[Rfam]
RNA sequence: UUUGGGCGACCCAACUGCAUGUCCAUUACCCGGCCACGGCGUAAACCCAAUCGCUGCUGGCUCCCCUGACGU
Numbered sequence: 001u002u003u004g005g006g007c008g009a010c011c012c013a014a015c016u017g018c019a020u021g022u023c024c025a026u027u028a029c030c031c032g033g034c035c036a037c038g039g040c041g042u043a044a045a046c047c048c049a050a051u052c053g054c055u056g057c058u059g060g061c062u063c064c065c066c067u068g069a070c071g072u
Base pairs, nucleotide, nucleotide: 007071008070017040018039020036021035023033024032051069052068053067056064

A member of the RNA family "Pseudomonas sRNA P10" from Pseudomonas sp. TTU2014-080ASC, 72 nucleotides long. For this family Rfam cites "Identification of 17 Pseudomonas aeruginosa sRNAs and prediction of sRNA-encoding genes in 10 diverse pathogens using the bioinformatic tool sRNAPredict2" (Livny et al., Nucleic Acids Res, 2006). By type it is a small RNA. The organism belongs to Pseudomonas, within Bacteria.